[Rfam]
RNA sequence: UUGAAAAGAACGUCGACUAAGAGCCGCCACGUCCUGUGGCGAACGUCGACGUCAGCACAUCCUGUGCA
Numbered sequence: 001u002u003g004a005a006a007a008g009a010a011c012g013u014c015g016a017c018u019a020a021g022a023g024c025c026g027c028c029a030c031g032u033c034c035u036g037u038g039g040c041g042a043a044c045g046u047c048g049a050c051g052u053c054a055g056c057a058c059a060u061c062c063u064g065u066g067c068a
Stems, first nucleotide, its partner, number of pairs: 011051007026040005055067004
A member of the RNA family "Bacillaceae-1 RNA" from Peribacillus cavernae, 68 nucleotides long.
A search with the family's covariance model found it, with a score of 72 bits.